[Rfam]
RNA sequence: UCCGUCCGGGUCCGUGGUUGCGUCAGGAGUACCUCCUGGCAAGUCGAUGCCAGUCGCAGGCGAAACGACCCACGUAAGGCGGUAGAACGCCGAUCACGGUGCGGCUUAGUCGUAAGUCCUGCCCAUCGCCCCUCGUCAGAUACGGGGACGCGAGGGAGAAGGCCAGUAGUGGCACAAGCUGCGAACGUCUCAGCAGGCGGGUGUGGGGGAGAAGACCAGGUCGGCCGGACGGA
Numbered sequence: 001u002c003c004g005u006c007c008g009g010g011u012c013c014g015u016g017g018u019u020g021c022g023u024c025a026g027g028a029g030u031a032c033c034u035c036c037u038g039g040c041a042a043g044u045c046g047a048u049g050c051c052a053g054u055c056g057c058a059g060g061c062g063a064a065a066c067g068a069c070c071c072a073c074g075u076a077a078g079g080c081g082g083u084a085g086a087a088c089g090c091c092g093a094u095c096a097c098g099g100u101g102c103g104g105c106u107u108a109g110u111c112g113u114a115a116g117u118c119c120u121g122c123c124c125a126u127c128g129c130c131c132c133u134c135g136u137c138a139g140a141u142a143c144g145g146g147g148a149c150g151c152g153a154g155g156g157a158g159a160a161g162g163c164c165a166g167u168a169g170u171g172g173c174a175c176a177a178g179c180u181g182c183g184a185a186c187g188u189c190u191c192a193g194c195a196g197g198c199g200g201g202u203g204u205g206g207g208g209g210a211g212a213a214g215a216c217c218a219g220g221u222c223g224g225c226c227g228g229a230c231g232g233a
Stems, first nucleotide, its partner, number of pairs: 001233009012224003015218005047204003050060001052106007069099002074094001078090001080089002097211001118197005123156002126153004160190004169182005
Background
raiA RNA: a 233-nucleotide RNA from Nocardioides marmoriginsengisoli. It scores 156 bits against the family's covariance model. The source organism's lineage runs through Bacteria, Bacillati, Actinomycetota, Actinomycetes and Nocardioides.